[Rfam]
RNA sequence: AUGGGGUCUUCACAAAAAGCAUGGAAAGGGUUUAGGGCUAUGGACUCCUCAAUUCACCUUCCUCCAAUGAAUUAAAAGCUCUUUUCUCUUGUGCUUCACUCACAUGGCUGCAUGCAUGGAGGAGGAGGAGGAUGAUAGGUUCCUAUAGAGUAGCUAGCUAGCAGAGGCUUUGGCUAAUGCAGUGGCAAACCGGCAAGUCCCACAAACGCAAUGGACUCCAUCUAUGAGUUCU
Dot-bracket structure: ...........................(((................................)))............(.(..(.............((...............................................................................)).....)..).).......................(((((.......)))))..

Annotation
This 232-nucleotide RNA from Gossypium hirsutum belongs to the Rfam family "Early nodulin 40". On this family, see Gultyaev and Roussis, Nucleic Acids Res 2007: "Identification of conserved secondary structures and expansion segments in enod40 RNAs reveals new enod40 homologues in plants". The organism belongs to Gossypium, within Eukaryota. By type it is a non-coding RNA gene. Its family is annotated with nodulation in the Gene Ontology. The family's consensus secondary structure is taken from published work.